[Rfam]
RNA sequence: CCCCCUCGUGCUUUCUGAGCUGACAGCGGUUUGAUCAAAUACACUGGCUCAGUUCAGCAGGAACGAGAG
Dot-bracket structure: ..(.((.((.(((.(((((((((...((((............))))..))))))))).))).)).)).)
Numbered sequence: 001c002c003c004c005c006u007c008g009u010g011c012u013u014u015c016u017g018a019g020c021u022g023a024c025a026g027c028g029g030u031u032u033g034a035u036c037a038a039a040u041a042c043a044c045u046g047g048c049u050c051a052g053u054u055c056a057g058c059a060g061g062a063a064c065g066a067g068a069g
Stems, first nucleotide, its partner, number of pairs: 003069001005067002008064002011061003015057009027046004